[Rfam]
Shown here is a 76-nucleotide RNA from Erinaceus europaeus, a member of the family "Small nucleolar RNA U2-19". A reference for the family is Tycowski et al. (2004), "Guide RNAs with 5' Caps and Novel Box C/D snoRNA-like Domains for Modification of snRNAs in Metazoa", Curr Biol. Rfam 15.1 lists 1,147 matches to the family in 531 species. The organism belongs to Erinaceus, within Eukaryota. The match comes from Rfam's covariance-model search (52 bits). Gene Ontology terms of the family: RNA processing and nucleolus.

RNA sequence: GCUCAAUGAUGAAAGCCAAAUCUGAACAUCAGAAUCUCUUCAGGCUACCUGAUGCUUGAUUUAUAAAAAAUAAAUA
Dot-bracket structure: ..........................((((...(.((.....)).)....))))......................